[Rfam]
RNA sequence: CAACUCUGGUUUCUCUUCAAUUGUCGAAUAAAUCUUUCGCCUUUUACUAAAGAUUUCCGUGGAGAGGGACACACUAAUGAGUCUAGACUCAAUUUUUUGAUAGGGCCCUGCUGCUUGCGGGGCC
Numbered sequence: 001c002a003a004c005u006c007u008g009g010u011u012u013c014u015c016u017u018c019a020a021u022u023g024u025c026g027a028a029u030a031a032a033u034c035u036u037u038c039g040c041c042u043u044u045u046a047c048u049a050a051a052g053a054u055u056u057c058c059g060u061g062g063a064g065a066g067g068g069a070c071a072c073a074c075u076a077a078u079g080a081g082u083c084u085a086g087a088c089u090c091a092a093u094u095u096u097u098u099g100a101u102a103g104g105g106c107c108c109u110g111c112u113g114c115u116u117g118c119g120g121g122g123c124c
Stems, first nucleotide, its partner, number of pairs: 003082004009070011030056008105123006
RNA: U5 spliceosomal RNA